The family of this 128-nucleotide RNA sequence from Coturnix japonica is "Small nucleolar RNA SNORA65". The family has 14 seed sequences and 1,089 matches in Rfam 15.1. Its Rfam clan is "SNORA65 clan". Gene Ontology terms of the family: nucleolus and RNA processing. On this family, see Huttenhofer et al., EMBO J 2001: "RNomics: an experimental approach that identifies 201 candidates for novel, small, non-messenger RNAs in mouse". Rfam's curators write: U65 belongs to the H/ACA class of snoRNAs which are thought to guide the sites of modification of uridines to pseudouridines. The family's RNA type in Rfam is H/ACA-box small nucleolar RNA. NCBI's taxonomy places the organism under Eukaryota, Dipnotetrapodomorpha, Aves, Neognathae, Coturnix.

RNA sequence: CCCGCCACUGUACCUGCCUUGAACUCAGUAGCUGGUAUAUUCCAGUGGUGAGCUGAGAGCAGCCCCAGCCCAGGAAGCAGCGCUCCAAUGGCUGUGGGAAGGGCUGUGCCGAAAGGCUGGGAACAAAG
Numbered sequence: 001c002c003c004g005c006c007a008c009u010g011u012a013c014c015u016g017c018c019u020u021g022a023a024c025u026c027a028g029u030a031g032c033u034g035g036u037a038u039a040u041u042c043c044a045g046u047g048g049u050g051a052g053c054u055g056a057g058a059g060c061a062g063c064c065c066c067a068g069c070c071c072a073g074g075a076a077g078c079a080g081c082g083c084u085c086c087a088a089u090g091g092c093u094g095u096g097g098g099a100a101g102g103g104c105u106g107u108g109c110c111g112a113a114a115g116g117c118u119g120g121g122a123a124c125a126a127a128g
Base pairs, nucleotide, nucleotide: 005048006047007046008045009044010043018035019034021032023029064121065120066119067118069115073110074109078106079105080104081103083101084098085097086096